[Rfam]
RNA sequence: GCCGAGUCCAGUCUAAUACUGCGUCAUGUCACUAGGAUAUUGCCGGAGUCUCGCUUUUGGACAAGAAUAAUUUAAUUUCUUUUAUUAUCCUUGUGCUUGUACAAAUCCAAGUUCAAUGCACACGAGAAACGUAAAAGAACAAUA
Numbered sequence: 001g002c003c004g005a006g007u008c009c010a011g012u013c014u015a016a017u018a019c020u021g022c023g024u025c026a027u028g029u030c031a032c033u034a035g036g037a038u039a040u041u042g043c044c045g046g047a048g049u050c051u052c053g054c055u056u057u058u059g060g061a062c063a064a065g066a067a068u069a070a071u072u073u074a075a076u077u078u079c080u081u082u083u084a085u086u087a088u089c090c091u092u093g094u095g096c097u098u099g100u101a102c103a104a105a106u107c108c109a110a111g112u113u114c115a116a117u118g119c120a121c122a123c124g125a126g127a128a129a130c131g132u133a134a135a136a137g138a139a140c141a142a143u144a
Base pairs, nucleotide, nucleotide: 006062007061008060009059010058019048020047022045023044025042026041027039028038029037030036078138079137080136081135082134083133084132085131090126091125092124093123094122095121

This 144-nucleotide RNA from Scaptodrosophila lebanonensis belongs to the Rfam family "Small nucleolar RNA psi28S-1192". Rfam 15.1 lists 81 matches to the family in 36 species. About the family: psi28S-1192 is a member of the H/ACA class of snoRNA. This family is responsible for guiding the modification of uridine 1192 to pseudouridine in Drosophila 28S rRNA. Gene Ontology terms of the family: RNA processing and nucleolus.